[Rfam]
RNA sequence: CCACCAGGAGUAAAACUGCAGUCUACUCUGCUCCUAAAAGCUGUCCGAAAGGAUUAGGUGGUUGCCUCUACCCUAUAGCUAGUCAGCAUCCGCUGGCAACACCCUCAAAUUGCAGGAAACUCCUAAAGCACCAACUACCGCGGCCUAUCGAAAGAUGAGGUGCAGCACCGGGUUAAUGGCCUCGGGGAUGGUAAAAACGUUGGUGAUGUUACAAUGGACAAUCUGCAGCCAAGCACCUAAAACGGUGAAGGUUCAGAGACUUGACGGGGGUGGGUACUCAAACAACAUACUUGUUGUUUGGUGCUUAAGAUAAAGUCCGAAAUCAUGCUGAAAUGCUUGU
Numbered sequence: 001c002c003a004c005c006a007g008g009a010g011u012a013a014a015a016c017u018g019c020a021g022u023c024u025a026c027u028c029u030g031c032u033c034c035u036a037a038a039a040g041c042u043g044u045c046c047g048a049a050a051g052g053a054u055u056a057g058g059u060g061g062u063u064g065c066c067u068c069u070a071c072c073c074u075a076u077a078g079c080u081a082g083u084c085a086g087c088a089u090c091c092g093c094u095g096g097c098a099a100c101a102c103c104c105u106c107a108a109a110u111u112g113c114a115g116g117a118a119a120c121u122c123c124u125a126a127a128g129c130a131c132c133a134a135c136u137a138c139c140g141c142g143g144c145c146u147a148u149c150g151a152a153a154g155a156u157g158a159g160g161u162g163c164a165g166c167a168c169c170g171g172g173u174u175a176a177u178g179g180c181c182u183c184g185g186g187g188a189u190g191g192u193a194a195a196a197a198c199g200u201u202g203g204u205g206a207u208g209u210u211a212c213a214a215u216g217g218a219c220a221a222u223c224u225g226c227a228g229c230c231a232a233g234c235a236c237c238u239a240a241a242a243c244g245g246u247g248a249a250g251g252u253u254c255a256g257a258g259a260c261u262u263g264a265c266g267g268g269g270g271u272g273g274g275u276a277c278u279c280a281a282a283c284a285a286c287a288u289a290c291u292u293g294u295u296g297u298u299u300g301g302u303g304c305u306u307a308a309g310a311u312a313a314a315g316u317c318c319g320a321a322a323u324c325a326u327g328c329u330g331a332a333a334u335g336c337u338u339g340u
Stems, first nucleotide, its partner, number of pairs: 006035007041052002100272005106266001111227006121218003228252002236244001256318001258317005274304005280298002325338001327336002
RNA: Group I catalytic intron